[Rfam]
RNA sequence: AAACCCCGUGCGGGAGAGUUCGGGCCGGUAGCCAGCCGGUUCGGCGCCGAAGGAGCAACCCCUCCCCGGAACCUCUCAGGCGGCCAGGACCGCACGGGUGAG
Numbered sequence: 001a002a003a004c005c006c007c008g009u010g011c012g013g014g015a016g017a018g019u020u021c022g023g024g025c026c027g028g029u030a031g032c033c034a035g036c037c038g039g040u041u042c043g044g045c046g047c048c049g050a051a052g053g054a055g056c057a058a059c060c061c062c063u064c065c066c067c068g069g070a071a072c073c074u075c076u077c078a079g080g081c082g083g084c085c086a087g088g089a090c091c092g093c094a095c096g097g098g099u100g101a102g
Stems, first nucleotide, its partner, number of pairs: 006097008020044009046081003049077002053075003059069002
The family of this 102-nucleotide RNA from Kutzneria viridogrisea is "Glycine riboswitch aptamer". It scores 63 bits against the family's covariance model.